Rfam assigns this 295-nucleotide RNA from Streptomyces sp. ISL-98 to the family "5' ureB small RNA".
A search with the family's covariance model found it, with a score of 66 bits.
The family has 13 seed sequences and 4,812 matches in Rfam 15.1.
The organism belongs to Streptomyces, within Bacteria.
A reference for the family is Wen et al. (2013), "Helicobacter pylori 5'ureB-sRNA, a cis-encoded antisense small RNA, negatively regulates ureAB expression by transcription termination", J Bacteriol.
Rfam links the family to the GO term negative regulation of gene expression.

RNA sequence: UGGUCGACGAUGGUCGGCGAGAUGAAGUGGACGUGCGCGUCGAUGGUGCCGGCGGUGAGGAUCUUGCCGUUGCCGGCGAUGAUCUCGGUCUCGGGCCCGAUGACGAGGUCGGGGUGUACGCCGUCCAUCGUGUCGGGGUUGCCGGCCUUGCCGACGCCGGUGAUCCGUCCGUCCCGAAUGCCGAUGUCGGCCUUGACGAUGCCCCAGUGGUCGAGGACCACAACGCCGGUGAUGACGGUGUCCGGUGCGCCGUCGGCACGCGUCGUACGCGCCUGGCCCAUGGAUUCGCGGAUCA
Numbered sequence: 001u002g003g004u005c006g007a008c009g010a011u012g013g014u015c016g017g018c019g020a021g022a023u024g025a026a027g028u029g030g031a032c033g034u035g036c037g038c039g040u041c042g043a044u045g046g047u048g049c050c051g052g053c054g055g056u057g058a059g060g061a062u063c064u065u066g067c068c069g070u071u072g073c074c075g076g077c078g079a080u081g082a083u084c085u086c087g088g089u090c091u092c093g094g095g096c097c098c099g100a101u102g103a104c105g106a107g108g109u110c111g112g113g114g115u116g117u118a119c120g121c122c123g124u125c126c127a128u129c130g131u132g133u134c135g136g137g138g139u140u141g142c143c144g145g146c147c148u149u150g151c152c153g154a155c156g157c158c159g160g161u162g163a164u165c166c167g168u169c170c171g172u173c174c175c176g177a178a179u180g181c182c183g184a185u186g187u188c189g190g191c192c193u194u195g196a197c198g199a200u201g202c203c204c205c206a207g208u209g210g211u212c213g214a215g216g217a218c219c220a221c222a223a224c225g226c227c228g229g230u231g232a233u234g235a236c237g238g239u240g241u242c243c244g245g246u247g248c249g250c251c252g253u254c255g256g257c258a259c260g261c262g263u264c265g266u267a268c269g270c271g272c273c274u275g276g277c278c279c280a281u282g283g284a285u286u287c288g289c290g291g292a293u294c295a
Base pairs, nucleotide, nucleotide: 001295002294003293005290006289008288009287010286013161014160016074017073018072019071020070028051029050030049032048033047036045037044055067056066057065075152076151079148081146083144088142089141092138095134097132102129103128107125108124109123111121169276170275171274175269176268178266179265180264181262189227190226191225193223194222195221204213229259230258231257234254236252237251238250239249240248